[Rfam]
RNA: Lysine riboswitch aptamer
RNA sequence: AAAGACAGAAGAGGAGCGUUAUCCAGGUAUCUAGGUUGCGGGGCCCCACCCCAAAGCAGUUUAGAGAGGGGGAAUAACGCCGAGGUAUUGCUGGACAGGGGACCAGUAAUAUCGGCUUCGAAGGUUGAAUCCUUCUGGCUGUCACCUUUUAUUUUUGAUGAGUAAAAGGUGGAGAGCUUCUGGUUGU
Numbered sequence: 001a002a003a004g005a006c007a008g009a010a011g012a013g014g015a016g017c018g019u020u021a022u023c024c025a026g027g028u029a030u031c032u033a034g035g036u037u038g039c040g041g042g043g044c045c046c047c048a049c050c051c052c053a054a055a056g057c058a059g060u061u062u063a064g065a066g067a068g069g070g071g072g073a074a075u076a077a078c079g080c081c082g083a084g085g086u087a088u089u090g091c092u093g094g095a096c097a098g099g100g101g102a103c104c105a106g107u108a109a110u111a112u113c114g115g116c117u118u119c120g121a122a123g124g125u126u127g128a129a130u131c132c133u134u135c136u137g138g139c140u141g142u143c144a145c146c147u148u149u150u151a152u153u154u155u156u157g158a159u160g161a162g163u164a165a166a167a168g169g170u171g172g173a174g175a176g177c178u179u180c181u182g183g184u185u186g187u
Base pairs, nucleotide, nucleotide: 006182007181008180009179010178011177016080017079018078019077020076021075022074024072030065031064032063033062034061035060036059037058084113085112086111087110088109089108090107091106092105093104094103114140115139116138117137120135121134122133123132124131142172143171144170145169146168147167148166149165150164151163152162